Source information:
The family of this 46-nucleotide RNA from Oryctolagus cuniculus is "Histone 3' UTR stem-loop".
RNA sequence: CCAACGGCUCUUUUAAGAGCCACCCCACCUCUCAGUUAAAAGCUGU
Numbered sequence: 001c002c003a004a005c006g007g008c009u010c011u012u013u014u015a016a017g018a019g020c021c022a023c024c025c026c027a028c029c030u031c032u033c034a035g036u037u038a039a040a041a042g043c044u045g046u
Base pairs, nucleotide, nucleotide: 006021007020008019009018010017011016
Pairs were carried over by alignment from the consensus structure, which is taken from published work. Lineage of the source: Eukaryota > Vertebrata > Tetrapoda > Eutheria > Oryctolagus. About the family: The mRNAs of metazoan histone genes lack a poly-A tail. 3' end processing occurs at a site between a highly conserved stem-loop (modelled by this family) and a purine rich region around 20 nts downstream (the histone downstream element, or HDE). The stem-loop is bound by a 31 kDa stem-loop binding protein (SLBP - also termed the histone hairpin binding protein, or HBP). Together with U7 snRNA binding of the HDE, SLBP binding nucleate s the formation of the processing complex. Gene Ontology term of the family: mRNA 3'-end processing by stem-loop binding and cleavage.